[Rfam]
The record is a 249-nucleotide RNA from Robertmurraya siralis, which matches "BsrG" in Rfam. By type it is a small RNA. The source organism's lineage runs through Bacteria, Bacillati, Bacillota, Bacillaceae and Robertmurraya. The literature on the family includes a 2008 paper in Gene by Saito et al., "Novel small RNA-encoding genes in the intergenic regions of Bacillus subtilis". Gene Ontology terms of the family: toxin activity and autolysis. It scores 130 bits against the family's covariance model.
RNA sequence: GCAAUAGUAAGAAACUCAAGGGUGGUCAGCACAUCCCCAAUUGAAGGGGGGUGAUGCUGUGACGGUAUUUGAAGCAUUGAUGUUUGCGUGUGCCUUUGCAAGCUUAAUCAUCGCUGUCCUGUCAUUUAACCAAAAAAAAUAACCCACCCUUGAGCUGACCGGCCUAGGUGGAUUAUCCUGAAAAUGCUGAUCCCCCUUGAAAGGGACCUACUAUUGUAUUGACCGCUAAGUGUUACCAGCACUAAGCGG
Numbered sequence: 001g002c003a004a005u006a007g008u009a010a011g012a013a014a015c016u017c018a019a020g021g022g023u024g025g026u027c028a029g030c031a032c033a034u035c036c037c038c039a040a041u042u043g044a045a046g047g048g049g050g051g052u053g054a055u056g057c058u059g060u061g062a063c064g065g066u067a068u069u070u071g072a073a074g075c076a077u078u079g080a081u082g083u084u085u086g087c088g089u090g091u092g093c094c095u096u097u098g099c100a101a102g103c104u105u106a107a108u109c110a111u112c113g114c115u116g117u118c119c120u121g122u123c124a125u126u127u128a129a130c131c132a133a134a135a136a137a138a139a140u141a142a143c144c145c146a147c148c149c150u151u152g153a154g155c156u157g158a159c160c161g162g163c164c165u166a167g168g169u170g171g172a173u174u175a176u177c178c179u180g181a182a183a184a185u186g187c188u189g190a191u192c193c194c195c196c197u198u199g200a201a202a203g204g205g206a207c208c209u210a211c212u213a214u215u216g217u218a219u220u221g222a223c224c225g226c227u228a229a230g231u232g233u234u235a236c237c238a239g240c241a242c243u244a245a246g247c248g249g
Base pairs, nucleotide, nucleotide: 001217002216003215004214005213007211008210009209011207012191015154016153017152018151019150020149021148022147024144025143026142032053033052035050036049037048038047061123062122063121064120065119067117074089075088098114099113157177158176193205194204195203223249224248225247226246229243230242231241232240233239234238
About the family: bsrE, bsrG and bsrH pair through intermolecular interactions with antisense sRNAs. They form type I toxin/antitoxin system that includes an mRNA encoding for a short, toxic peptide (bsrE, bsrG and bsrH) and an antitoxin that is comprised of an antisense RNA. bsrG encodes a 39-amino-acid toxin, and the 180 nucleotide antisense sRNA called SR4 acts as the antitoxin (they overlap by 123 nucleotides). SR4 interaction with the 3'UTR of bsrG RNA promotes bsrG degradation and inhibits its translation.